[Rfam]
RNA sequence: GGUAUUGUUUACCCCAUUUGAAAGGCCCCGGAACCUUCCAAAUAUACUUUUCGAUGGGAAGGGACACCCAUCACUCGUAAACAAAAA
Dot-bracket structure: .....(((((((...(((((.((((........)))).))))).................................)))))))....
Numbered sequence: 001g002g003u004a005u006u007g008u009u010u011a012c013c014c015c016a017u018u019u020g021a022a023a024g025g026c027c028c029c030g031g032a033a034c035c036u037u038c039c040a041a042a043u044a045u046a047c048u049u050u051u052c053g054a055u056g057g058g059a060a061g062g063g064a065c066a067c068c069c070a071u072c073a074c075u076c077g078u079a080a081a082c083a084a085a086a087a
Stems, first nucleotide, its partner, number of pairs: 006083007016043005022037004

Record summary: A member of the RNA family "Ribosomal protein L13 leader" from Streptococcus thermophilus, 87 nucleotides long. Rfam's curators put it in the seed alignment. Rfam describes the family as follows. This family is a putative r-protein leader autoregulatory structure found in B. subtilis and other low-GC Gram-positive bacteria. The literature on the family includes a 1994 paper in Prog Nucleic Acid Res Mol Biol by Zengel and Lindahl, "Diverse mechanisms for regulating ribosomal protein synthesis in Escherichia coli".